[Rfam]
RNA: Small nucleolar RNA snoR136
RNA sequence: AUGGCUUCUCUUUCUAAUGUGAUUUUGCUUGCACAAAGUAGUAAAUAUAUUGUGUUUUGCAAUGUUUAAUUGAAGCCUAGAACGAUGUUCCCCUCGCUAUCCAAUGCUGCAAUAUCAAGGCUGCAUUAGGACGUCGGGGAACAACAUUA
Numbered sequence: 001a002u003g004g005c006u007u008c009u010c011u012u013u014c015u016a017a018u019g020u021g022a023u024u025u026u027g028c029u030u031g032c033a034c035a036a037a038g039u040a041g042u043a044a045a046u047a048u049a050u051u052g053u054g055u056u057u058u059g060c061a062a063u064g065u066u067u068a069a070u071u072g073a074a075g076c077c078u079a080g081a082a083c084g085a086u087g088u089u090c091c092c093c094u095c096g097c098u099a100u101c102c103a104a105u106g107c108u109g110c111a112a113u114a115u116c117a118a119g120g121c122u123g124c125a126u127u128a129g130g131a132c133g134u135c136g137g138g139g140a141a142c143a144a145c146a147u148u149a
Base pairs, nucleotide, nucleotide: 002079003077004076005075008072012069013068016066017065019063020062025061031055032054035053037051038050039049087142088141089140090139091138092137093136095133096132100131101130102129104127109121110120